The record is a 95-nucleotide RNA sequence from Lupinus albus, which matches "Small nucleolar RNA Z103" in Rfam. It scores 90 bits against the family's covariance model. The organism belongs to Lupinus, within Eukaryota. The family's consensus secondary structure was predicted with PFOLD. Its family is annotated with nucleolus and RNA processing in the Gene Ontology. It is annotated as a C/D-box small nucleolar RNA.

[Rfam]
RNA sequence: AUAGAAGUGAUGAUUAUUUCCCCAGAUGAUCGAAGAUGAUAUAACUGUGCGAUUUAUUUCUCGUUAGAGAAAUCAAGCCAAUUAAUCUGAUCUAU
Numbered sequence: 001a002u003a004g005a006a007g008u009g010a011u012g013a014u015u016a017u018u019u020c021c022c023c024a025g026a027u028g029a030u031c032g033a034a035g036a037u038g039a040u041a042u043a044a045c046u047g048u049g050c051g052a053u054u055u056a057u058u059u060c061u062c063g064u065u066a067g068a069g070a071a072a073u074c075a076a077g078c079c080a081a082u083u084a085a086u087c088u089g090a091u092c093u094a095u
Stems, first nucleotide, its partner, number of pairs: 001095005